[Rfam]
RNA sequence: UUCUUAUCAAGAGAGGUGGAGGGACAAGGCCCUGCGAAACCUCAGCAACCUUCAUAGGCUUCGUUUUUAUGAAAAGGUGCUAACUCCAGCUUGUAUGCUGCUUAAGGCAUACGGGGAAGAUAAGGA
Dot-bracket structure: ((((((((....(((((...(((....[[)))......)))))((((.((((((((((.......))))))))..))))))...(]]..((((((((((......))))))))))..)))))))))